RNA sequence: AAAAAGCACCAGGGGUGUCUGCAUCUGCUUCAUAAGCAGGUCAGGCUGAGAAAGUCCCUUUGAACCUGAACAGGUUAAUACCUGCGUAGGGAGCGUGCGUUUUGUUUUCU
Numbered sequence: 001a002a003a004a005a006g007c008a009c010c011a012g013g014g015g016u017g018u019c020u021g022c023a024u025c026u027g028c029u030u031c032a033u034a035a036g037c038a039g040g041u042c043a044g045g046c047u048g049a050g051a052a053a054g055u056c057c058c059u060u061u062g063a064a065c066c067u068g069a070a071c072a073g074g075u076u077a078a079u080a081c082c083u084g085c086g087u088a089g090g091g092a093g094c095g096u097g098c099g100u101u102u103u104g105u106u107u108u109c110u
Stems, first nucleotide, its partner, number of pairs: 006098004011059004016053001017046005065090004071084004